[Rfam]
RNA sequence: GGAGGUGGUGAGGUGGUCGCAGGCGGGUACGCUCGCUUGAGGAAAGUCCGGGCUCACCAACGAGCAGGUUGCUGGGUAACGCCCAGUGCGCGUGAGCGUGAGGAUAGUGCCACAGAAACAUACCGCCGAUGGCUUUGCAAAAAGUACAGGUAAGGGUGCAAAGGUGCGGUAAGAGCGCACCAGCAGCAUCGAGAGGUGCUGGCUUGGUAAACCCCGCCCCGAGCAAGGCGUGAGGACAGAAGCGCAAGCUUCAGGGUUGCUCGUUGACCGUCCUCCAAGGUGCCGCAAGAGGCGUCGGGUAACCGGCGUCCCAGAGAGAUGACUACCCUGUGAUGGUCU
Numbered sequence: 001g002g003a004g005g006u007g008g009u010g011a012g013g014u015g016g017u018c019g020c021a022g023g024c025g026g027g028u029a030c031g032c033u034c035g036c037u038u039g040a041g042g043a044a045a046g047u048c049c050g051g052g053c054u055c056a057c058c059a060a061c062g063a064g065c066a067g068g069u070u071g072c073u074g075g076g077u078a079a080c081g082c083c084c085a086g087u088g089c090g091c092g093u094g095a096g097c098g099u100g101a102g103g104a105u106a107g108u109g110c111c112a113c114a115g116a117a118a119c120a121u122a123c124c125g126c127c128g129a130u131g132g133c134u135u136u137g138c139a140a141a142a143a144g145u146a147c148a149g150g151u152a153a154g155g156g157u158g159c160a161a162a163g164g165u166g167c168g169g170u171a172a173g174a175g176c177g178c179a180c181c182a183g184c185a186g187c188a189u190c191g192a193g194a195g196g197u198g199c200u201g202g203c204u205u206g207g208u209a210a211a212c213c214c215c216g217c218c219c220c221g222a223g224c225a226a227g228g229c230g231u232g233a234g235g236a237c238a239g240a241a242g243c244g245c246a247a248g249c250u251u252c253a254g255g256g257u258u259g260c261u262c263g264u265u266g267a268c269c270g271u272c273c274u275c276c277a278a279g280g281u282g283c284c285g286c287a288a289g290a291g292g293c294g295u296c297g298g299g300u301a302a303c304c305g306g307c308g309u310c311c312c313a314g315a316g317a318g319a320u321g322a323c324u325a326c327c328c329u330g331u332g333a334u335g336g337u338c339u
Base pairs, nucleotide, nucleotide: 012327013326014325015324016323017322018321020039021038022037023036024035025034026033027032053223054222055221062264064262067219068218070216071215072086073085074084075083076082087101088099089098090097091096102214103213107212108211109208110207111206123155124154125151126150127149132147135144163181164180165179166178167177168176183203184201185200186199187198188197189196190195227284228283229282232275233274234273235272236271255269256268257267258266259265291310292309293308294307295306296305297304298303
Dot-bracket structure: ...........(((((((.((((((((....)))))))).............(((......[.[..((.(((((((.....)))))(((((....)))).)((...(((((...........(((((....(..(........)..).)))..)).......((((((.......)))))).((((((((....))))))).)..)))..)))))).)).)))...(((..(((((..................(((((..].]))))).)))))......)))......((((((((....))))))))..........)))))))............
Rfam assigns this 339-nucleotide RNA sequence from Gloeobacterales cyanobacterium ES-bin-141 to the family "Bacterial RNase P class A". The family's RNA type in Rfam is ribozyme. Taxonomically the source falls in Gloeobacterales (Bacteria, Bacillati, Cyanobacteriota, Cyanophyceae).